[Rfam]
RNA sequence: GUUGGGAAGGGGAAGAAACAGGUGUCUAAGAGCAGUGCGCAUGGGAAUAUCGGGGAAGGCACGUAUUUUUCUUCUCUUCUGUAGUUCUGGAACUAGGGGUUCAGAUUUGUUCUUUCCCAAUGCCUCCCAUGCCUAUUGUUCUUAGUUUCUCCUUCCCCUUCCUUUAGGCU
Numbered sequence: 001g002u003u004g005g006g007a008a009g010g011g012g013a014a015g016a017a018a019c020a021g022g023u024g025u026c027u028a029a030g031a032g033c034a035g036u037g038c039g040c041a042u043g044g045g046a047a048u049a050u051c052g053g054g055g056a057a058g059g060c061a062c063g064u065a066u067u068u069u070u071c072u073u074c075u076c077u078u079c080u081g082u083a084g085u086u087c088u089g090g091a092a093c094u095a096g097g098g099g100u101u102c103a104g105a106u107u108u109g110u111u112c113u114u115u116c117c118c119a120a121u122g123c124c125u126c127c128c129a130u131g132c133c134u135a136u137u138g139u140u141c142u143u144a145g146u147u148u149c150u151c152c153u154u155c156c157c158c159u160u161c162c163u164u165u166a167g168g169c170u
Stems, first nucleotide, its partner, number of pairs: 009161004015155003021150002026145009036135002039132008048122003052118001054117006
RNA: MIR2118 microRNA precursor family
Organism: Miscanthus lutarioriparius